[Rfam]
RNA: Rubella virus 3' cis-acting element
RNA sequence: CACAAGCCUGGCGAUUUUUCGCCAGGCUUGUGGCCCUCUCGCAAUGUCCGAACAAGCCUUGCAGUCC
Numbered sequence: 001c002a003c004a005a006g007c008c009u010g011g012c013g014a015u016u017u018u019u020c021g022c023c024a025g026g027c028u029u030g031u032g033g034c035c036c037u038c039u040c041g042c043a044a045u046g047u048c049c050g051a052a053c054a055a056g057c058c059u060u061g062c063a064g065u066c067c
Stems, first nucleotide, its partner, number of pairs: 001032004006027009033058001035056001039051003